[Rfam]
RNA sequence: GGAUUAUAUAUUUUUGUUAAAGGUCUCGUUCAUUGUAAUGGGCUCUAUAGCCCUUGCCGACCAUCCUGAUAUAUCACCACCCAUAUUCCGAGUUC
Number, nucleotide and partner (000 for none) at each position: 001g095002g094003a093004u092005u000006a000007u000008a000009u000010a000011u000012u000013u000014u000015u000016g000017u000018u000019a000020a000021a000022g000023g000024u000025c000026u000027c000028g000029u000030u000031c000032a000033u000034u000035g000036u000037a000038a000039u000040g000041g000042g000043c000044u000045c050046u000047a000048u000049a000050g045051c000052c000053c000054u000055u000056g000057c000058c000059g000060a000061c000062c000063a000064u000065c000066c000067u000068g000069a000070u000071a000072u000073a000074u000075c000076a000077c000078c000079a000080c000081c000082c000083a000084u000085a000086u000087u000088c000089c000090g000091a000092g004093u003094u002095c001
RNA: Small nucleolar RNA Z43
Organism: Morus notabilis